[Rfam]
RNA sequence: CCCUGUAAAUAUAGAAUAUUUGGUUUUGGUCCUUCGUAUUUUGUUUUAAUCCUUGUAAAAUCAUUUCAUAUUGAAAUUGGUUCCUAUAAUAUUCAUUUUGAGGGACUAAAAUCAAAUAUUCUACAUAUUACAAGGAUCAAAUCCAAUAUGAAUCAAUUUUACAAGGACUAAAAUAAAAUACCAAGGACCAAAACCAAAAAUUUUUAAUUUGCAGGGA
Numbered sequence: 001c002c003c004u005g006u007a008a009a010u011a012u013a014g015a016a017u018a019u020u021u022g023g024u025u026u027u028g029g030u031c032c033u034u035c036g037u038a039u040u041u042u043g044u045u046u047u048a049a050u051c052c053u054u055g056u057a058a059a060a061u062c063a064u065u066u067c068a069u070a071u072u073g074a075a076a077u078u079g080g081u082u083c084c085u086a087u088a089a090u091a092u093u094c095a096u097u098u099u100g101a102g103g104g105a106c107u108a109a110a111a112u113c114a115a116a117u118a119u120u121c122u123a124c125a126u127a128u129u130a131c132a133a134g135g136a137u138c139a140a141a142u143c144c145a146a147u148a149u150g151a152a153u154c155a156a157u158u159u160u161a162c163a164a165g166g167a168c169u170a171a172a173a174u175a176a177a178a179u180a181c182c183a184a185g186g187a188c189c190a191a192a193a194c195c196a197a198a199a200a201u202u203u204u205u206a207a208u209u210u211g212c213a214g215g216g217a
Stems, first nucleotide, its partner, number of pairs: 006211005013204001015202002019198002022195013036181013050167002053164009065152002068149006077140007087130006095112005